The record is a 90-nucleotide sequence from Bacillus sp. cl95, which matches "c-di-GMP-I riboswitch aptamer" in Rfam.
Rfam links the family to the GO term cyclic-di-GMP binding.
The match comes from Rfam's covariance-model search (75 bits).
GEMM was predicted in a large-scale screen for bacterial structured RNA regulatory elements. Genes associated with GEMM are involved in a diverse array of functions, including chemotaxis regulation, signal transduction, secretion and chitin.
The family's consensus secondary structure is taken from published work.
The organism belongs to Bacillus, within Bacteria.
Nucleotides: 090
Stems, first nucleotide, its partner, number of pairs: 012037002017032006040084004046079002048075003055069004
Number, partner (000 for none) and nucleotide at each position: 001000g002000g003000g004000u005000g006000u007000a008000a009000a010000g011000g012037g013036c014000a015000a016000a017032c018031u019030u020029c021028u022027u023000g024000a025000a026000a027022a028021g029020g030019a031018a032017g033000g034000a035000c036013g037012c038000a039000a040084a041083g042082c043081c044000g045000u046079g047078a048075a049074u050073c051000u052000a053000a054000g055069g056068c057067g058066g059000g060000a061000a062000a063000u064000a065000c066058u067057u068056g069055c070000u071000a072000u073050g074049a075048u076000u077000g078047u079046c080000u081043g082042g083041u084040u085000g086000c087000c088000a089000u090000a